[Rfam]
The family of this 232-nucleotide sequence from Gossypium trilobum is "Early nodulin 40". The literature on the family includes a 2007 paper in Nucleic Acids Res by Gultyaev and Roussis, "Identification of conserved secondary structures and expansion segments in enod40 RNAs reveals new enod40 homologues in plants". The match comes from Rfam's covariance-model search (84 bits). It is annotated as a non-coding RNA gene. The source organism's lineage runs through Eukaryota, Streptophyta, Gunneridae, Malvoideae and Gossypium.
RNA sequence: AUGGGGUCUUCACAAAAAGCAUGGAAAGGGUUUAGGGCUAUGGACUCCUCAAUUCACCUUCCUCCAAUGAAUUAAAAGCACUUUUCUCUUGUGCUUCACUCACAUGGCUGCAUGCAUGGAGGAGGAGGAGGAGGAUCGGUUCCUACAGAGUAGCUAGCUAGCAGAGGCUUUGGCUAAUGCAGUGGCAAACCGGCAAGUCACACAAAGGCAAUGGACUCCAUCUAUGAGUUCU
Dot-bracket structure: ...........................(((................................)))................(((.(..............((...........................................................................)).....).)))........................(((((.......)))))..